RNA sequence: UGCAGUGUUACAGUACCUGCCACCAGCAGCCUUUCCUGGUGGGAUGUUCAAAAAGCAGUGCUACACCAGUGCAGCAUUUGGCAUCCUUGGUUUUCAUUCUGCUAUGCUUGUUAAACCUGGUAUUUUUGCUGAAACUGUC
Numbered sequence: 001u002g003c004a005g006u007g008u009u010a011c012a013g014u015a016c017c018u019g020c021c022a023c024c025a026g027c028a029g030c031c032u033u034u035c036c037u038g039g040u041g042g043g044a045u046g047u048u049c050a051a052a053a054a055g056c057a058g059u060g061c062u063a064c065a066c067c068a069g070u071g072c073a074g075c076a077u078u079u080g081g082c083a084u085c086c087u088u089g090g091u092u093u094u095c096a097u098u099c100u101g102c103u104a105u106g107c108u109u110g111u112u113a114a115a116c117c118u119g120g121u122a123u124u125u126u127u128g129c130u131g132a133a134a135c136u137g138u139c
Stems, first nucleotide, its partner, number of pairs: 002061003006057002018052001019047002023043002025040001027038003064128002068124003072119003080108005
A member of the RNA family "Small nucleolar RNA SNORA8" from Sinosuthora webbiana, 139 nucleotides long. Rfam's curators write: ACA8 is a member of the H/ACA class of snoRNA that guide the sites of modification of uridines to pseudouridines. The base pairs follow the family's consensus structure, which was predicted with RNAfold. The source organism's lineage runs through Eukaryota, Vertebrata, Gnathostomata, Archosauria and Sinosuthora.